[Rfam]
Nucleotides: 126
Stems, first nucleotide, its partner, number of pairs: 004117004009113002017038009042072005048066002051063003075087004089108008118125002
Number, partner (000 for none) and nucleotide at each position: 001000a002000g003000a004117u005116g006115a007114g008000a009113g010112a011000u012000a013000c014000a015000c016000c017038c018037g019036c020035c021034c022033a023032c024031a025030g026000g027000g028000g029000a030025c031024u032023g033022u034021g035020g036019g037018c038017g039000a040000a041000c042072c043071c044070g045069g046068g047000c048066c049065g050000u051063g052062g053061c054000c055000u056000c057000c058000c059000c060000a061053g062052c063051u064000u065049c066048g067000a068046c069045c070044u071043g072042g073000u074000c075087g076086u077085g078084c079000c080000u081000c082000g083000c084078g085077c086076a087075c088000a089108c090107c091106g092105g093104a094103g095102c096101c097000c098000c099000c100000g101096g102095g103094c104093u105092c106091c107090g108089g109000a110000u111000c112010u113009c114007c115006u116005c117004a118125c119124c120000g121000a122000u123000c124119g125118g126000a